[Rfam]
RNA sequence: GAUUGUGGUGGUUUUCUUUCUGGCGCGUUUGUUAAGUUUUCAGAUGGGCCUGACUCUGCCACAUGCAUCGGAGCUGGCAAAGGCUUGAUGACAGAGAUGGCUCCGAAGCCUUUUCUGCACCAGAGACUGGCCCCCACACGC
Numbered sequence: 001g002a003u004u005g006u007g008g009u010g011g012u013u014u015u016c017u018u019u020c021u022g023g024c025g026c027g028u029u030u031g032u033u034a035a036g037u038u039u040u041c042a043g044a045u046g047g048g049c050c051u052g053a054c055u056c057u058g059c060c061a062c063a064u065g066c067a068u069c070g071g072a073g074c075u076g077g078c079a080a081a082g083g084c085u086u087g088a089u090g091a092c093a094g095a096g097a098u099g100g101c102u103c104c105g106a107a108g109c110c111u112u113u114u115c116u117g118c119a120c121c122a123g124a125g126a127c128u129g130g131c132c133c134c135c136a137c138a139c140g141c
Stems, first nucleotide, its partner, number of pairs: 005062007022050003026046006070134002073131003076085003101125003

Background
The record is a 141-nucleotide sequence from Propithecus coquereli, which matches "Small nucleolar RNA SNORA12" in Rfam. U108 belongs to the H/ACA family of snoRNAs. The sequence is predicted to guide the pseudouridylation of the U372 residue in the 28S rRNA subunit. However it has not been reported as a pseudouridylation site. Rfam links the family to the GO terms nucleolus and RNA processing. By type it is an H/ACA-box small nucleolar RNA. For this family Rfam cites "A novel experimental approach for systematic identification of box H/ACA snoRNAs from eukaryotes" (Gu et al., Nucleic Acids Res, 2005). The match comes from Rfam's covariance-model search (124 bits).